[Rfam]
RNA sequence: AUGCUUGCGUAAUCGCUGUAUAUACCAUAUAUACAGAGGAAAGUCCAUGCUCACACAGGCUGCGAGGCCUGUAGUGUUCGUGCUUGACGAAAUCAUAAGUCAAGGUAACGGUUAACGUUAACGGCAGUGGAACGUCCUAAUUCGAAAGAUAUGGGUCAGUACACUUGAAAGUGCCACAGUGACGCAGUCGGGUUGGAAACGAUUCGAAUGGAACGCGGUAAACCCCACGAGUGAGCAACCCAAAAAUAGGUAGGGGCAUCCUUGAUUAGGGAAGUGAACCGAAAAAGGGACGGGUAUUUAUGCAAAUACCUGCAGAUAGAUGAUUACGACCGAUGUACAAGGCUGACCACCGUCCAAGUACAGCGGAACAGAACAUGGCUUAUCAAG
Number, nucleotide and partner (000 for none) at each position: 001a000002u000003g000004c387005u386006u385007g383008c328009g327010u326011a325012a324013u323014c322015g000016c036017u035018g034019u033020a032021u031022a000023u000024a000025c000026c000027a000028u000029a000030u000031a021032u020033a019034c018035a017036g016037a000038g000039g000040a000041a381042a380043g379044u000045c378046c377047a376048u375049g374050c235051u234052c233053a232054c231055a072056c071057a070058g069059g068060c067061u000062g000063c000064g000065a000066g000067g060068c059069c058070u057071g056072u055073a000074g000075u000076g000077u000078u230079c229080g228081u227082g226083c104084u103085u102086g101087a100088c099089g000090a000091a000092a000093u000094c000095a000096u000097a000098a000099g088100u087101c086102a085103a084104g083105g122106u120107a119108a118109c117110g116111g000112u000113u000114a000115a000116c110117g109118u108119u107120a106121a000122c105123g225124g224125c000126a165127g164128u163129g162130g000131a000132a000133c000134g156135u155136c154137c153138u000139a000140a000141u000142u149143c148144g000145a000146a000147a000148g143149a142150u000151a000152u000153g137154g136155g135156u134157c000158a000159g000160u000161a000162c129163a128164c127165u126166u000167g000168a000169a000170a000171g223172u222173g219174c218175c217176a000177c000178a000179g000180u000181g000182a000183c000184g000185c000186a000187g000188u207189c206190g205191g204192g203193u202194u201195g200196g000197a000198a000199a000200c195201g194202a193203u192204u191205c190206g189207a188208a000209u000210g000211g000212a000213a000214c000215g000216c000217g175218g174219u173220a000221a000222a172223c171224c124225c123226c082227a081228c080229g079230a078231g054232u053233g052234a051235g050236c000237a000238a000239c255240c254241c253242a000243a000244a000245a000246a000247u000248a000249g000250g000251u000252a000253g241254g240255g239256g000257c000258a000259u289260c288261c287262u286263u285264g000265a000266u000267u000268a000269g000270g000271g000272a000273a000274g000275u000276g000277a000278a000279c000280c000281g000282a000283a000284a000285a263286a262287g261288g260289g259290a000291c312292g311293g310294g309295u308296a307297u306298u305299u304300a000301u000302g000303c000304a299305a298306a297307u296308a295309c294310c293311u292312g291313c000314a000315g000316a000317u000318a000319g000320a000321u000322g014323a013324u012325u011326a010327c009328g008329a000330c366331c365332g364333a000334u362335g361336u360337a359338c358339a000340a000341g000342g000343c000344u000345g000346a000347c000348c000349a000350c000351c000352g000353u000354c000355c000356a000357a000358g338359u337360a336361c335362a334363g000364c332365g331366g330367a000368a000369c000370a000371g000372a000373a000374c049375a048376u047377g046378g045379c043380u042381u041382a000383u007384c000385a006386a005387g004